[Rfam]
RNA sequence: UGUUGAUGAUGACAAAUCCAAAGGUUUGUUUCUCAAAACAUUCGUAGUGGCCGCCUAAAAGCUUUCUCCUUCGCCAGGUUUGAGAGCUAAUGCUGCUACCAUCCUUCCUUGGAUGUCUGAGACA
Numbered sequence: 001u002g003u004u005g006a007u008g009a010u011g012a013c014a015a016a017u018c019c020a021a022a023g024g025u026u027u028g029u030u031u032c033u034c035a036a037a038a039c040a041u042u043c044g045u046a047g048u049g050g051c052c053g054c055c056u057a058a059a060a061g062c063u064u065u066c067u068c069c070u071u072c073g074c075c076a077g078g079u080u081u082g083a084g085a086g087c088u089a090a091u092g093c094u095g096c097u098a099c100c101a102u103c104c105u106u107c108c109u110u111g112g113a114u115g116u117c118u119g120a121g122a123c124a
Stems, first nucleotide, its partner, number of pairs: 001124004061087006
RNA: Small nucleolar RNA SNORD14